RNA: Mammalian CPEB3 ribozyme
RNA sequence: AGUAAAUAUUAGGGGGUCAUUGUAGAAGCGUGCUCAUCGCGAGCCCUGCCAGCCCUUUUCAGCUGCGCACCCAUGCA
Numbered sequence: 001a002g003u004a005a006a007u008a009u010u011a012g013g014g015g016g017u018c019a020u021u022g023u024a025g026a027a028g029c030g031u032g033c034u035c036a037u038c039g040c041g042a043g044c045c046c047u048g049c050c051a052g053c054c055c056u057u058u059u060c061a062g063c064u065g066c067g068c069a070c071c072c073a074u075g076c077a
Stems, first nucleotide, its partner, number of pairs: 013046003017042002021077004025072001028040003050065004056061001